Shown here is a 212-nucleotide part of an RNA from Cytospora mali, a member of the family "Ascomycota telomerase RNA". It scores 501 bits against the family's covariance model. The family is grouped with related families in Rfam's "Telomerase clan". Taxonomically the source falls in Cytospora (Eukaryota, Fungi, Pezizomycotina, Diaporthales). By type it is a non-coding RNA gene.

RNA sequence: UCCCCCACAGUUCUCCGAUUCUCGUUUUCCGAAAGGAAUGUCCGUAAGGGCCUCUCUGCUGGGCUGGAUCACCACAAUACGUCGCAUCUCGUACCUGUAUCAGGAAUCUCGAUGAUUGCCGCGGAAUGGAUUAUUGUGUCACGGUUGUCAGCAACUGACAAGCCAGUCCCCAGCGAGGGUACGAGUCUCGGAACUUAACCCUAAGUAUUCGG
Numbered sequence: 001u002c003c004c005c006c007a008c009a010g011u012u013c014u015c016c017g018a019u020u021c022u023c024g025u026u027u028u029c030c031g032a033a034a035g036g037a038a039u040g041u042c043c044g045u046a047a048g049g050g051c052c053u054c055u056c057u058g059c060u061g062g063g064c065u066g067g068a069u070c071a072c073c074a075c076a077a078u079a080c081g082u083c084g085c086a087u088c089u090c091g092u093a094c095c096u097g098u099a100u101c102a103g104g105a106a107u108c109u110c111g112a113u114g115a116u117u118g119c120c121g122c123g124g125a126a127u128g129g130a131u132u133a134u135u136g137u138g139u140c141a142c143g144g145u146u147g148u149c150a151g152c153a154a155c156u157g158a159c160a161a162g163c164c165a166g167u168c169c170c171c172a173g174c175g176a177g178g179g180u181a182c183g184a185g186u187c188u189c190g191g192a193a194c195u196u197a198a199c200c201c202u203a204a205g206u207a208u209u210c211g212g
Stems, first nucleotide, its partner, number of pairs: 009195003015191004

The base pairs follow the family's consensus structure. The family has 4 seed sequences and 475 matches in Rfam 15.1. Its family is annotated with telomerase activity, telomere maintenance via telomerase and telomerase catalytic core complex in the Gene Ontology.